[Rfam]
RNA sequence: AACUAGUAAUCGCCAGGACAGAAGCGGGGGACCCACCUUCCUUCCGCCGGAUGUCGCCACCGCGGCGCCGUCCUUGGGGUGAAGUCGGCUGCGCGUUCCCGCGCGCCGACCGGGCUUCCCGGCCCGAACCCGACAGCUAACCUCGCAGGCGUAUGGGAAGGAUCAU
Numbered sequence: 001a002a003c004u005a006g007u008a009a010u011c012g013c014c015a016g017g018a019c020a021g022a023a024g025c026g027g028g029g030g031a032c033c034c035a036c037c038u039u040c041c042u043u044c045c046g047c048c049g050g051a052u053g054u055c056g057c058c059a060c061c062g063c064g065g066c067g068c069c070g071u072c073c074u075u076g077g078g079g080u081g082a083a084g085u086c087g088g089c090u091g092c093g094c095g096u097u098c099c100c101g102c103g104c105g106c107c108g109a110c111c112g113g114g115c116u117u118c119c120c121g122g123c124c125c126g127a128a129c130c131c132g133a134c135a136g137c138u139a140a141c142c143u144c145g146c147a148g149g150c151g152u153a154u155g156g157g158a159a160g161g162a163u164c165a166u
Stems, first nucleotide, its partner, number of pairs: 011151004024146006034076002077131003085109004112125004

A member of the RNA family "c-di-AMP riboswitch aptamer (ydaO/yuaA leader)" from Candidatus Protofrankia californiensis, 166 nucleotides long.
It scores 71 bits against the family's covariance model.